The family of this 80-nucleotide RNA is "skipping-rope RNA". Rfam's curators put it in the seed alignment. It is annotated as a small RNA. Pairs were carried over by alignment from the consensus structure, which is taken from published work.
RNA sequence: UGAAAUCUGAGGACGGAACAGGCAGCCGUCACGCCCUUUGGGUCUUAAAGAGAUGUGGGAUUGUCACCCCACCUAUUUCA
Numbered sequence: 001u002g003a004a005a006u007c008u009g010a011g012g013a014c015g016g017a018a019c020a021g022g023c024a025g026c027c028g029u030c031a032c033g034c035c036c037u038u039u040g041g042g043u044c045u046u047a048a049a050g051a052g053a054u055g056u057g058g059g060a061u062u063g064u065c066a067c068c069c070c071a072c073c074u075a076u077u078u079c080a
Base pairs, nucleotide, nucleotide: 001080002079003078004077005076006075009073012030013029014028015027016026021065022064023063024062032050033043034042035041036040055072056071057070058069059068